Rfam assigns this 124-nucleotide RNA from Pasteurella bettyae to the family "Ribosomal S15 leader". Its Rfam clan is "Ribosomal Protein S15 Leader clan". Rfam classes the family as a cis-regulatory leader. Lineage of the source: Bacteria > Pseudomonadati > Gammaproteobacteria > Pasteurellales > Pasteurella bettyae. The E. coli Ribosomal S15 gene 5' UTR can form two alternative structures. One that is a series of three hairpins, The other includes a pseudoknot. This structure causes translational regulation of the S15 protein. The alignment of this family contains only the final two hairpins which are conserved in other species, and also includes the complete region that forms the alternate structures. The literature on the family includes a 1996 paper in Biochimie by Benard et al., "Pseudoknot and translational control in the expression of the S15 ribosomal protein". A search with the family's covariance model found it, with a score of 92 bits.
RNA sequence: UGUCGUAGCUGGAUUAGAGAUCGGCUAACGAUGUAUCAUUAACAAACCCUAGUUAUAAGGAUUUAAUAUGUCUCUAACUACAGAACAAAAAGCAGCAAUCGUUGCUGAAUAUGGUCGUGAUGCA
Dot-bracket structure: ......((((((........)))))).........................(((....((...........))..)))..............................................
Numbered sequence: 001u002g003u004c005g006u007a008g009c010u011g012g013a014u015u016a017g018a019g020a021u022c023g024g025c026u027a028a029c030g031a032u033g034u035a036u037c038a039u040u041a042a043c044a045a046a047c048c049c050u051a052g053u054u055a056u057a058a059g060g061a062u063u064u065a066a067u068a069u070g071u072c073u074c075u076a077a078c079u080a081c082a083g084a085a086c087a088a089a090a091a092g093c094a095g096c097a098a099u100c101g102u103u104g105c106u107g108a109a110u111a112u113g114g115u116c117g118u119g120a121u122g123c124a
Stems, first nucleotide, its partner, number of pairs: 007026006052078003059073002
The family's consensus secondary structure is taken from published work.